[Rfam]
Nucleotides: 087
Stems, first nucleotide, its partner, number of pairs: 004084003012074001014072004020067014038049004
Number, partner (000 for none) and nucleotide at each position: 001000a002000g003000a004084g005083g006082c007000c008000c009000u010000c011000c012074g013000c014072g015071g016070c017069c018000a019000g020067g021066g022065u023064g024063g025062a026061a027060u028059g029058u030057u031056u032055g033054c034000c035000u036000c037000a038049u039048c040047g041046c042000c043000g044000c045000g046041g047040u048039g049038a050000c051000a052000a053000a054033g055032c056031a057030a058029g059028c060027g061026u062025u063024c064023c065022g066021c067020c068000a069017g070016g071015c072014c073000a074012c075000u076000c077000a078000c079000a080000c081000u082006g083005c084004c085000c086000g087000c

Shown here is an 87-nucleotide RNA sequence from Pipistrellus kuhlii, a member of the family "mir-9195 microRNA precursor family". Its family is annotated with RISC complex and miRNA-mediated post-transcriptional gene silencing in the Gene Ontology. Rfam 15.1 lists 438 matches to the family in 7 species.